[Rfam]
RNA sequence: GCGUGGGUCGGCCCGCUGUACUGGAUCCAGUGGGCUGGGGGAUGCCGCCGCCACAAUCCCCGCGGGCGGCGGAGCGGUCCGGGGGGCGUUUUCCGCCCUCCGGAUCGGC
Numbered sequence: 001g002c003g004u005g006g007g008u009c010g011g012c013c014c015g016c017u018g019u020a021c022u023g024g025a026u027c028c029a030g031u032g033g034g035c036u037g038g039g040g041g042a043u044g045c046c047g048c049c050g051c052c053a054c055a056a057u058c059c060c061c062g063c064g065g066g067c068g069g070c071g072g073a074g075c076g077g078u079c080c081g082g083g084g085g086g087c088g089u090u091u092u093c094c095g096c097c098c099u100c101c102g103g104a105u106c107g108g109c
Stems, first nucleotide, its partner, number of pairs: 002107001006075001008073001009037010038043001045072008076106013
Rfam assigns this 109-nucleotide sequence from Streptomyces sp. BK239 to the family "Streptomyces RNA 4115". It scores 91 bits against the family's covariance model. Rfam describes the family as follows. Identified by deep sequencing of transcriptome at the end of exponential growth phase. A reference for the family is Vockenhuber et al. (2011), "Deep sequencing-based identification of small non-coding RNAs in Streptomyces coelicolor", RNA Biol. It is annotated as a small RNA. The base pairs follow the family's consensus structure.